[Rfam]
RNA sequence: UUUAGCCUUCAGGGCAGGGUGAAAUUCCCGACCGGCGGUAAAGCCCGCGAGCUGCUUUAGUCAGCUGAUCUGGUGAAAUUCCAGAGCCGACAGUUAAAGUCUGGAUGGGAGAAGGUUAAG
Numbered sequence: 001u002u003u004a005g006c007c008u009u010c011a012g013g014g015c016a017g018g019g020u021g022a023a024a025u026u027c028c029c030g031a032c033c034g035g036c037g038g039u040a041a042a043g044c045c046c047g048c049g050a051g052c053u054g055c056u057u058u059a060g061u062c063a064g065c066u067g068a069u070c071u072g073g074u075g076a077a078a079u080u081c082c083a084g085a086g087c088c089g090a091c092a093g094u095u096a097a098a099g100u101c102u103g104g105a106u107g108g109g110a111g112a113a114g115g116u117u118a119a120g
Stems, first nucleotide, its partner, number of pairs: 003118008017029003031100002033089002035048004043087002051065003069085005091103003